[Rfam]
RNA sequence: CUAUGUUAUGGAUAUAACAUGGCGAAAGGAG
Numbered sequence: 001c002u003a004u005g006u007u008a009u010g011g012a013u014a015u016a017a018c019a020u021g022g023c024g025a026a027a028g029g030a031g
Stems, first nucleotide, its partner, number of pairs: 001022008

Background: This 31-nucleotide RNA sequence belongs to the Rfam family "L31-Firmicutes ribosomal protein leader". The family's consensus secondary structure is taken from published work. It is annotated as a cis-regulatory leader.